[Rfam]
RNA sequence: GGCAUUCGCGCGGGAGAGCCCUCCGCCGCUGGCGGGGGCACCGAAGGAGCAACCGCCCCGGAAACUCUCAGGUAGAACGGACCGCGCGACUGGC
Numbered sequence: 001g002g003c004a005u006u007c008g009c010g011c012g013g014g015a016g017a018g019c020c021c022u023c024c025g026c027c028g029c030u031g032g033c034g035g036g037g038g039c040a041c042c043g044a045a046g047g048a049g050c051a052a053c054c055g056c057c058c059c060g061g062a063a064a065c066u067c068u069c070a071g072g073u074a075g076a077a078c079g080g081a082c083c084g085c086g087c088g089a090c091u092g093g094c
Stems, first nucleotide, its partner, number of pairs: 006089008020038004040073003043069002047067003053061002

Rfam assigns this 94-nucleotide RNA sequence from Aurantiacibacter atlanticus to the family "Glycine riboswitch aptamer".
Its family is annotated with glycine biosynthetic process in the Gene Ontology.
Lineage of the source: Bacteria > Pseudomonadati > Pseudomonadota > Erythrobacteraceae > Aurantiacibacter.